[Rfam]
RNA: Small nucleolar RNA SNORD35
RNA sequence: UGCAAGUGAUGUUUUUUCUCACGAUGGUCUUCCAAACCCGUAGGGUUCUGACGACAGCGCCUUUUGGCAACACUGAUGUAGUCAU
Numbered sequence: 001u002g003c004a005a006g007u008g009a010u011g012u013u014u015u016u017u018c019u020c021a022c023g024a025u026g027g028u029c030u031u032c033c034a035a036a037c038c039c040g041u042a043g044g045g046u047u048c049u050g051a052c053g054a055c056a057g058c059g060c061c062u063u064u065u066g067g068c069a070a071c072a073c074u075g076a077u078g079u080a081g082u083c084a085u
Stems, first nucleotide, its partner, number of pairs: 001080004